A member of the RNA family "Nuclear RNase P" from Aureobasidium melanogenum, 380 nucleotides long. Rfam links the family to the GO terms tRNA processing, ribonuclease P activity and ribonuclease P complex. Lineage of the source: Eukaryota > dothideomyceta > Dothideomycetes > Dothideomycetidae > Aureobasidium. Ribonuclease P (RNase P) is a ubiquitous endoribonuclease, found in archaea, bacteria and eukarya as well as chloroplasts and mitochondria.
RNA sequence: UCCUCACCAAAGCUGCGUUUCUUUGCUUCCACACAGACGGAAUGAGCAAUCAUUUCGUCCUACACCACUUGCAAAUGAGAAAUUCGGAGUAAUCUUCACAUUACCAAAAACUCACCUUGCAACCACUUUCACGAGUGCGCGCAAGCUCUGAGUCACUGCCUGCGAGGGCCUGACGUGACACGUCUGCACCUGGCAUCAGAAAUUUCAGAACGUCUUGACCUGGGACAAGGGCUAGUCUCUUGAAACGGGAAGAGAUCGCGUUUCUAUGGGAGCCGGUGCGAAGAUUGUAUGCAGAGUCUGACUUUGCGAUACUUGAGUGCAAUACGCAGCGUUUCUUCUUUUACGAAGGGAUAAUUCGAUUCCGAUUACUCGGGUGAGGA
Numbered sequence: 001u002c003c004u005c006a007c008c009a010a011a012g013c014u015g016c017g018u019u020u021c022u023u024u025g026c027u028u029c030c031a032c033a034c035a036g037a038c039g040g041a042a043u044g045a046g047c048a049a050u051c052a053u054u055u056c057g058u059c060c061u062a063c064a065c066c067a068c069u070u071g072c073a074a075a076u077g078a079g080a081a082a083u084u085c086g087g088a089g090u091a092a093u094c095u096u097c098a099c100a101u102u103a104c105c106a107a108a109a110a111c112u113c114a115c116c117u118u119g120c121a122a123c124c125a126c127u128u129u130c131a132c133g134a135g136u137g138c139g140c141g142c143a144a145g146c147u148c149u150g151a152g153u154c155a156c157u158g159c160c161u162g163c164g165a166g167g168g169c170c171u172g173a174c175g176u177g178a179c180a181c182g183u184c185u186g187c188a189c190c191u192g193g194c195a196u197c198a199g200a201a202a203u204u205u206c207a208g209a210a211c212g213u214c215u216u217g218a219c220c221u222g223g224g225a226c227a228a229g230g231g232c233u234a235g236u237c238u239c240u241u242g243a244a245a246c247g248g249g250a251a252g253a254g255a256u257c258g259c260g261u262u263u264c265u266a267u268g269g270g271a272g273c274c275g276g277u278g279c280g281a282a283g284a285u286u287g288u289a290u291g292c293a294g295a296g297u298c299u300g301a302c303u304u305u306g307c308g309a310u311a312c313u314u315g316a317g318u319g320c321a322a323u324a325c326g327c328a329g330c331g332u333u334u335c336u337u338c339u340u341u342u343a344c345g346a347a348g349g350g351a352u353a354a355u356u357c358g359a360u361u362c363c364g365a366u367u368a369c370u371c372g373g374g375u376g377a378g379g380a
Base pairs, nucleotide, nucleotide: 001380002379003378004377007374008373014329019324022075023074024073025072036059037058038057039056040055041054042053043052044051085364086363087362088361089360094283095282096281097280158169159168160167161166172184173183174182175181186279187278188277189276190275192273207265208264209263331352332351333350334349335348336347337346